[Rfam]
RNA sequence: GGGGUGCACAAUAGACUUACCUCCACGUGGUGCACCCUGGGCAACGUAUACUCAUCAGACGGCAAAAAAGUCUAU
Numbered sequence: 001g002g003g004g005u006g007c008a009c010a011a012u013a014g015a016c017u018u019a020c021c022u023c024c025a026c027g028u029g030g031u032g033c034a035c036c037c038u039g040g041g042c043a044a045c046g047u048a049u050a051c052u053c054a055u056c057a058g059a060c061g062g063c064a065a066a067a068a069a070g071u072c073u074a075u
Stems, first nucleotide, its partner, number of pairs: 001038007019031003045061003049057001
Rfam assigns this 75-nucleotide sequence from Rodentolepis nana to the family "HDV ribozyme from F. prausnitzii".
Pairs were carried over by alignment from the consensus structure, which is taken from published work.
On this family, see Webb et al., Science 2009: "Widespread occurrence of self-cleaving ribozymes".
NCBI's taxonomy places the organism under Eukaryota, Opisthokonta, Protostomia, Eucestoda, Rodentolepis.
Gene Ontology term of the family: catalytic activity.